[Rfam]
RNA: MAT2A 3'UTR stem loop D
Organism: Teladorsagia circumcincta
RNA sequence: ACUGGGGCAGGGCGUAUGCACAUUAGACGCAUUGGAGCUGUGGAAUCGCCCUCGCCUCAGA
Numbered sequence: 001a002c003u004g005g006g007g008c009a010g011g012g013c014g015u016a017u018g019c020a021c022a023u024u025a026g027a028c029g030c031a032u033u034g035g036a037g038c039u040g041u042g043g044a045a046u047c048g049c050c051c052u053c054g055c056c057u058c059a060g061a
Stems, first nucleotide, its partner, number of pairs: 002060007009052005